Rfam assigns this 83-nucleotide RNA from Conexibacter arvalis to the family "c-di-GMP-I-GGC riboswitch aptamer". Lineage of the source: Bacteria > Bacillati > Actinomycetota > Conexibacteraceae > Conexibacter. A search with the family's covariance model found it, with a score of 66 bits.

[Rfam]
RNA sequence: UCUCGAAAGGGCAAACCACUCGCGAGGGUGGGACGCAAAGCCACGGGGCUCCAGAUGGGAGGGAGCCAGCCGGGCCGCCGAAG
Numbered sequence: 001u002c003u004c005g006a007a008a009g010g011g012c013a014a015a016c017c018a019c020u021c022g023c024g025a026g027g028g029u030g031g032g033a034c035g036c037a038a039a040g041c042c043a044c045g046g047g048g049c050u051c052c053a054g055a056u057g058g059g060a061g062g063g064a065g066c067c068a069g070c071c072g073g074g075c076c077g078c079c080g081a082a083g
Base pairs, nucleotide, nucleotide: 001083003080011036012035016031017030018029019028020027021026034069040075041074042073044072045071046070047067048066049065050064051063052062